The family of this 460-nucleotide RNA sequence from Atlantisia rogersi is "Vertebrate telomerase RNA". Rfam links the family to the GO terms telomere maintenance via telomerase, telomerase catalytic core complex and telomerase activity. Its Rfam clan is "Telomerase clan". The organism belongs to Atlantisia, within Eukaryota. It scores 176 bits against the family's covariance model. For this family Rfam cites "Secondary structure of vertebrate telomerase RNA" (Chen et al., Cell, 2000). By type it is a non-coding RNA gene.
RNA sequence: UCGCGUGGCGGGGUGGGGGAGCCCUGGUGUCACUAACCCUAAUGGCCGCUGCCGCGCUCCCCGCGCCCGUCCGCUGUUUUACUCGCUGACUUUCAGCGGACGAGGGGAGCAGCCCGGGGAGGUGGGGUGGGGGGAACGAAGGGGGUCCGCCGCCAAAAAAAACGUCAGCGAGGGGGCUCCUCACCCCGGCCCGCCCUGGGGUCCUUGUCCUGACCCCCGCAGCCGGGGGUCCGCCGCGGAGGCUCCCGCCGCCGCCCCCCCCUUGAGGCCGCGGUCGGCCGGCUCCCGCCACUGCCGCCGCGAAGAGUUCGUCUCUGUCAGCCUCGGCGGCGGCCGGGAGCGAAGGGGCGCUCCCCCGCGCCGGGGGACCCCAGCAGAGCAAAACGGGAGCGGCGCCCCCGGGCCGACCGCCGCGCUUCCCUCAGCCGUGGGGCGCGCGGCCGGCGCCGCUCCGACACGC
Numbered sequence: 001u002c003g004c005g006u007g008g009c010g011g012g013g014u015g016g017g018g019g020a021g022c023c024c025u026g027g028u029g030u031c032a033c034u035a036a037c038c039c040u041a042a043u044g045g046c047c048g049c050u051g052c053c054g055c056g057c058u059c060c061c062c063g064c065g066c067c068c069g070u071c072c073g074c075u076g077u078u079u080u081a082c083u084c085g086c087u088g089a090c091u092u093u094c095a096g097c098g099g100a101c102g103a104g105g106g107g108a109g110c111a112g113c114c115c116g117g118g119g120a121g122g123u124g125g126g127g128u129g130g131g132g133g134g135a136a137c138g139a140a141g142g143g144g145g146u147c148c149g150c151c152g153c154c155a156a157a158a159a160a161a162a163c164g165u166c167a168g169c170g171a172g173g174g175g176g177c178u179c180c181u182c183a184c185c186c187c188g189g190c191c192c193g194c195c196c197u198g199g200g201g202u203c204c205u206u207g208u209c210c211u212g213a214c215c216c217c218c219g220c221a222g223c224c225g226g227g228g229g230u231c232c233g234c235c236g237c238g239g240a241g242g243c244u245c246c247c248g249c250c251g252c253c254g255c256c257c258c259c260c261c262c263u264u265g266a267g268g269c270c271g272c273g274g275u276c277g278g279c280c281g282g283c284u285c286c287c288g289c290c291a292c293u294g295c296c297g298c299c300g301c302g303a304a305g306a307g308u309u310c311g312u313c314u315c316u317g318u319c320a321g322c323c324u325c326g327g328c329g330g331c332g333g334c335c336g337g338g339a340g341c342g343a344a345g346g347g348g349c350g351c352u353c354c355c356c357c358g359c360g361c362c363g364g365g366g367g368a369c370c371c372c373a374g375c376a377g378a379g380c381a382a383a384a385c386g387g388g389a390g391c392g393g394c395g396c397c398c399c400c401g402g403g404c405c406g407a408c409c410g411c412c413g414c415g416c417u418u419c420c421c422u423c424a425g426c427c428g429u430g431g432g433g434c435g436c437g438c439g440g441c442c443g444g445c446g447c448c449g450c451u452c453c454g455a456c457a458c459g460c
Base pairs, nucleotide, nucleotide: 005192007190009188010187011186012185013184014183015182016181017180018179020178021177022176023175024174056110057109058108059107060106068102069101070100071099072098073097074096075095076094085169086168087167088166089165090164091162092161093160196374197373198372199371200370201369202368227355228354229353232350233349234348235347242341243340244339245338246337247336248335251331252330253329254328255327270302271301272300273299274298276297277296278295279294281290282289283288304316305315306314307313388452389451390450391449392448393447394446395445396444397443411440412439413438414437415436418433419432420431421430